RNA sequence: UAUUAAAAAUUUUAUUCACUUUUAUUGUUAAAAACUGGUGUAUAUAAUAAAAUAACCAAAUAGUUAUACAUGACAAGCCAUAUGUAAUUCAUGUUGACGUAUAAGGACCAAUUUUUAAUAGUAAAAAUGGAUGAAUUUUUUAAAA
Numbered sequence: 001u002a003u004u005a006a007a008a009a010u011u012u013u014a015u016u017c018a019c020u021u022u023u024a025u026u027g028u029u030a031a032a033a034a035c036u037g038g039u040g041u042a043u044a045u046a047a048u049a050a051a052a053u054a055a056c057c058a059a060a061u062a063g064u065u066a067u068a069c070a071u072g073a074c075a076a077g078c079c080a081u082a083u084g085u086a087a088u089u090c091a092u093g094u095u096g097a098c099g100u101a102u103a104a105g106g107a108c109c110a111a112u113u114u115u116u117a118a119u120a121g122u123a124a125a126a127a128u129g130g131a132u133g134a135a136u137u138u139u140u141u142a143a144a145a
Stems, first nucleotide, its partner, number of pairs: 003143007011135006018128001020126007028118006
This 145-nucleotide RNA sequence from Gossypium lobatum belongs to the Rfam family "MIR7502 microRNA precursor family".